[Rfam]
RNA sequence: UUUGUUCUCUCUCCUUCAAAGGCUUCUGGAGCUGCAUAUAUAUGAUUAUGCAAAAACCUUGGAGCCUUUGGGGAGAGGGGACCAAAA
Numbered sequence: 001u002u003u004g005u006u007c008u009c010u011c012u013c014c015u016u017c018a019a020a021g022g023c024u025u026c027u028g029g030a031g032c033u034g035c036a037u038a039u040a041u042a043u044g045a046u047u048a049u050g051c052a053a054a055a056a057c058c059u060u061g062g063a064g065c066c067u068u069u070g071g072g073g074a075g076a077g078g079g080g081a082c083c084a085a086a087a
Stems, first nucleotide, its partner, number of pairs: 006080010017070010
The record is an 87-nucleotide sequence from Olea europaea, which matches "MIR473 microRNA precursor family" in Rfam. On this family, see Pantaleo et al., Plant J 2010: "Identification of grapevine microRNAs and their targets using high-throughput sequencing and degradome analysis". It scores 53 bits against the family's covariance model. Pairs were carried over by alignment from the consensus structure, which was predicted with WAR.